[Rfam]
RNA sequence: GCCCGCCUGCGUGACUGGCGAGACAGAUGGAGAACCAUCGGGAAGCGCAGGUUGUCGAUGCCGCUCGCCUGGGCACAAAAU
Numbered sequence: 001g002c003c004c005g006c007c008u009g010c011g012u013g014a015c016u017g018g019c020g021a022g023a024c025a026g027a028u029g030g031a032g033a034a035c036c037a038u039c040g041g042g043a044a045g046c047g048c049a050g051g052u053u054g055u056c057g058a059u060g061c062c063g064c065u066c067g068c069c070u071g072g073g074c075a076c077a078a079a080a081u
Base pairs, nucleotide, nucleotide: 003054005052006051007050008049009048010047011046012045015042016041017069018068019067020066021065027038028037029036030035059075060074061073062072

Shown here is an 81-nucleotide sequence from Rhizobium sp. BK275, a member of the family "ZMP/ZTP riboswitch aptamer (pfl RNA motif)". The source organism's lineage runs through Bacteria, Pseudomonadati, Pseudomonadota, Alphaproteobacteria and Rhizobium. The match comes from Rfam's covariance-model search (66 bits).